[Rfam]
RNA: HDV ribozyme from F. prausnitzii
RNA sequence: GGUGCGCGAUAGACGUACCUCCACGUGGUGCACCCCAGGCAACGUAUAAUCAUACGGCAAAAAAGUCUAU
Numbered sequence: 001g002g003u004g005c006g007c008g009a010u011a012g013a014c015g016u017a018c019c020u021c022c023a024c025g026u027g028g029u030g031c032a033c034c035c036c037a038g039g040c041a042a043c044g045u046a047u048a049a050u051c052a053u054a055c056g057g058c059a060a061a062a063a064a065g066u067c068u069a070u
Base pairs, nucleotide, nucleotide: 001034002033003032004031005030017029018028019027043056044055045054046053047052